[Rfam]
RNA sequence: ACGGAGACAUGGCAUAAAGCCCAAAAAGAGACUUUGAAAAACUUGACGGUCAACUUGAACUUAAUAAUUUGCAUCUCAUUUU
Numbered sequence: 001a002c003g004g005a006g007a008c009a010u011g012g013c014a015u016a017a018a019g020c021c022c023a024a025a026a027a028g029a030g031a032c033u034u035u036g037a038a039a040a041a042c043u044u045g046a047c048g049g050u051c052a053a054c055u056u057g058a059a060c061u062u063a064a065u066a067a068u069u070u071g072c073a074u075c076u077c078a079u080u081u082u
Stems, first nucleotide, its partner, number of pairs: 004077004011021003026070002